RNA sequence: UAAUAUUUAUAAGCGCCAGGACUAUUUUCUGAUCGGAAAUGAAAAUAGUUGACGAGGUUGAAGGUUAUCGAAUUUAUCGGCGGGUGCCUUCCGGUUGUACAUCUCAAUCGUAAGCUUUUCCACUAAAACAAUGAGGUAACUUAUUGCACAAAGGGGAGAAGCAAGAGGUGA
Numbered sequence: 001u002a003a004u005a006u007u008u009a010u011a012a013g014c015g016c017c018a019g020g021a022c023u024a025u026u027u028u029c030u031g032a033u034c035g036g037a038a039a040u041g042a043a044a045a046u047a048g049u050u051g052a053c054g055a056g057g058u059u060g061a062a063g064g065u066u067a068u069c070g071a072a073u074u075u076a077u078c079g080g081c082g083g084g085u086g087c088c089u090u091c092c093g094g095u096u097g098u099a100c101a102u103c104u105c106a107a108u109c110g111u112a113a114g115c116u117u118u119u120c121c122a123c124u125a126a127a128a129c130a131a132u133g134a135g136g137u138a139a140c141u142u143a144u145u146g147c148a149c150a151a152a153g154g155g156g157a158g159a160a161g162c163a164a165g166a167g168g169u170g171a
Stems, first nucleotide, its partner, number of pairs: 020050008029041001060091005068080004092110006115161007129146007
Rfam assigns this 171-nucleotide sequence from Ornithinibacillus caprae to the family "glmS glucosamine-6-phosphate activated ribozyme aptamer". It scores 123 bits against the family's covariance model. The family's consensus secondary structure is taken from published work. Gene Ontology terms of the family: regulation of gene expression and catalytic activity. About the family: This entry contains a glucosamine-6-phosphate activated ribozyme that is found in the mRNA for GlmS. GlmS is an enzyme that uses fructose-6-phosphate and glutamine to generate glucosamine-6-phosphate. The ribozyme catalyses self cleavage of the glmS mRNA that is thought to regulate GlmS activity.